[Rfam]
RNA sequence: GACCGAAAGGGCAAACUGUCGGUGACGGCAGGACGCAAAGCUUCCGGUCUCUUUCAGGAGACAGCGGGGUUACCGAAG
Numbered sequence: 001g002a003c004c005g006a007a008a009g010g011g012c013a014a015a016c017u018g019u020c021g022g023u024g025a026c027g028g029c030a031g032g033a034c035g036c037a038a039a040g041c042u043u044c045c046g047g048u049c050u051c052u053u054u055c056a057g058g059a060g061a062c063a064g065c066g067g068g069g070u071u072a073c074c075g076a077a078g
Stems, first nucleotide, its partner, number of pairs: 003075001011036002016031006034064001039071004044067003047062003
Background: c-di-GMP-I-GGC riboswitch aptamer: a 78-nucleotide RNA. The family's consensus secondary structure is taken from published work. The match comes from Rfam's covariance-model search (63 bits).